[Rfam]
RNA sequence: AUAGUAAGUCAGCCUAAUCUAGCUACUGUAGAGCGGGGGAACCAAAUUUGGGGCUUAUCUCUAGACCAAAGUCAAGAGAAGGACAUCUCUCAGUCCUAGUCCGUCAGCUAACCUCGUAGGCAUAGAGAGAAGACUG
Numbered sequence: 001a002u003a004g005u006a007a008g009u010c011a012g013c014c015u016a017a018u019c020u021a022g023c024u025a026c027u028g029u030a031g032a033g034c035g036g037g038g039g040a041a042c043c044a045a046a047u048u049u050g051g052g053g054c055u056u057a058u059c060u061c062u063a064g065a066c067c068a069a070a071g072u073c074a075a076g077a078g079a080a081g082g083a084c085a086u087c088u089c090u091c092a093g094u095c096c097u098a099g100u101c102c103g104u105c106a107g108c109u110a111a112c113c114u115c116g117u118a119g120g121c122a123u124a125g126a127g128a129g130a131a132g133a134c135u136g
Stems, first nucleotide, its partner, number of pairs: 012121003018032003033117006043050002051102003059078004081096004